Shown here is a 92-nucleotide RNA from Ziziphus jujuba, a member of the family "Small nucleolar RNA snoR26". Its family is annotated with RNA processing and nucleolus in the Gene Ontology. Lineage of the source: Eukaryota > Streptophyta > Pentapetalae > fabids > Ziziphus. Pairs were carried over by alignment from the consensus structure, which was predicted with WAR. By type it is a C/D-box small nucleolar RNA.
[Rfam]
RNA sequence: GGAGCAACACUAUUGAGUUUAUUAUGUUGUUAUCCUUGCAUUUUGAUUGCCUAUGAAGAAAAUGCAUGGAGAAAAUUUUCUUUCAGAUGCUC
Numbered sequence: 001g002g003a004g005c006a007a008c009a010c011u012a013u014u015g016a017g018u019u020u021a022u023u024a025u026g027u028u029g030u031u032a033u034c035c036u037u038g039c040a041u042u043u044u045g046a047u048u049g050c051c052u053a054u055g056a057a058g059a060a061a062a063u064g065c066a067u068g069g070a071g072a073a074a075a076u077u078u079u080c081u082u083u084c085a086g087a088u089g090c091u092c
Stems, first nucleotide, its partner, number of pairs: 002092005008086001